[Rfam]
The family of this 295-nucleotide RNA sequence from Schistosoma japonicum is "Metazoan signal recognition particle RNA". Rfam classes the family as a non-coding RNA gene. On this family, see Wild et al., Curr Opin Struct Biol 2002: "Towards the structure of the mammalian signal recognition particle". Rfam describes the family as follows. The signal recognition particle (SRP) is a universally conserved ribonucleoprotein. It is involved in the co-translational targeting of proteins to membranes. The eukaryotic SRP consists of a 300-nucleotide 7S RNA and six proteins: SRPs 72, 68, 54, 19, 14, and 9. Archaeal SRP consists of a 7S RNA and homologues of the eukaryotic SRP19 and SRP54 proteins. Eukaryotic and archaeal 7S RNAs have very similar secondary structures, as represented by this family. Eight helical elements fold into the Alu and S domains, separated by a long linker region. The Alu domain is thought to mediate the peptide chain elongation retardation function of the SRP. The universally conserved helix which interacts with the SRP54 M domain mediates signal sequence recognition. In eukaryotes and archaea, the SRP19-helix 6 complex is thought to be involved in SRP assembly and stabilises helix 8 for SRP54 binding. The Signal Recognition Particle Database (SRPDB) provides compilations of SRP components, with phylogenetic data and structural illustrations. Many sequences below the threshold for this family are clearly closely related, but are most likely to be SRP RNA derived pseudogenes. The human genome in particular is known to contain a large amount of SRP RNA related sequence, including Alu repeats. While the threshold of this family is set high so as to minimise the number of hits to such regions, it is likely that some remain. Gene Ontology terms of the family: SRP-dependent cotranslational protein targeting to membrane, signal sequence recognition and signal recognition particle, endoplasmic reticulum targeting.

RNA sequence: GCUGGGCGUGGUGGCGUGCGCCUGUAAUCUAGCUACUUGGAGGCCAGGGUGCGGGAUUUCGCGAGACCGGGAGUUCUGGCAUAUGGGUGCUCAUGUUGAUCGGGCGUCCACGCUAAGCACGGCGCCGAUAUGGAUGACCUGUCGGAGGAUGGGUUGUCCAGGUCGUCUAAGGAGGGGCGGACCGGCCCAGGGGGGAAACCCAGCAGGCAAAAGUCCCCGCGUGGUGCGGUAGCGGGAUAGCGCCUGUGAAUGGUGAGCCCGUCUUUUCGUUUUCGAUAUUAUUUGUCACGCAUAU
Dot-bracket structure: ((((((((((......)))))))....(((........))))))....(((.(.(.(..((.((.(.(((((...(.((.(.((((((..((((.(....(((((((((.(((((.((((.((((((((.(((((((((((((....))))))))))))).))))((...)).(((((......(((....(((....)))....)))....))))).)))).))))..)))))))...))))))).).))))...)))))).).)).).))))).).)..).))..)).).)))